Small nucleolar RNA Z221/R21b: an 87-nucleotide sequence from Capsicum baccatum. NCBI's taxonomy places the organism under Eukaryota, Embryophyta, asterids, Capsiceae, Capsicum. For this family Rfam cites "The high diversity of snoRNAs in plants: identification and comparative study of 120 snoRNA genes from Oryza sativa" (Chen et al., Nucleic Acids Res, 2003). The family's consensus secondary structure was predicted with WAR.
RNA sequence: GGGCUGUGAUGAUAUCUUGAGAAAGUCAUGCACCACUCUGACAUAAGUGAUGUGAAAUUUCUCAUACCCAUAUACUUUUCUGAGCUC
Numbered sequence: 001g002g003g004c005u006g007u008g009a010u011g012a013u014a015u016c017u018u019g020a021g022a023a024a025g026u027c028a029u030g031c032a033c034c035a036c037u038c039u040g041a042c043a044u045a046a047g048u049g050a051u052g053u054g055a056a057a058u059u060u061c062u063c064a065u066a067c068c069c070a071u072a073u074a075c076u077u078u079u080c081u082g083a084g085c086u087c
Stems, first nucleotide, its partner, number of pairs: 001087004